[Rfam]
RNA sequence: AGGUGCAUGCCCGGCCUCAAUCCUGUUUCCCUGAAGGAAGAGAAUAGUGUGGCAGUACACGCGACAGUCUCCCUCUCCGUUCAGGAGGGCUGUGCUAAGAAUAGGGAUGGCUCGUAAAGGCGUGAGGGGACAAU
Numbered sequence: 001a002g003g004u005g006c007a008u009g010c011c012c013g014g015c016c017u018c019a020a021u022c023c024u025g026u027u028u029c030c031c032u033g034a035a036g037g038a039a040g041a042g043a044a045u046a047g048u049g050u051g052g053c054a055g056u057a058c059a060c061g062c063g064a065c066a067g068u069c070u071c072c073c074u075c076u077c078c079g080u081u082c083a084g085g086a087g088g089g090c091u092g093u094g095c096u097a098a099g100a101a102u103a104g105g106g107a108u109g110g111c112u113c114g115u116a117a118a119g120g121c122g123u124g125a126g127g128g129g130a131c132a133a134u
Stems, first nucleotide, its partner, number of pairs: 003058004010052002026046001027044003031040002072129006079121003085115001087113005093106001095104003
The family of this 134-nucleotide RNA from Propithecus coquereli is "Small Cajal body specific RNA 11".
Rfam's curators write: scaRNAs are a specific class of small nuclear RNAs which localise to the Cajal bodies and guide the modification of RNA polymerase II transcribed spliceosomal RNAs U1, U2, U4, U5 and U12. ACA57 belongs to the H/ACA box class of guide RNAs as it has the predicted hairpin-hinge-hairpin-tail structure, conserved H/ACA-box motifs and is found associated with GAR1. ACA57 is predicted to guide the pseudouridylation of the U5 spliceosomal RNA at position U43.
NCBI's taxonomy places the organism under Eukaryota, Tetrapoda, Theria, Boreoeutheria, Propithecus.
Its family is annotated with nucleolus, Cajal body and RNA processing in the Gene Ontology.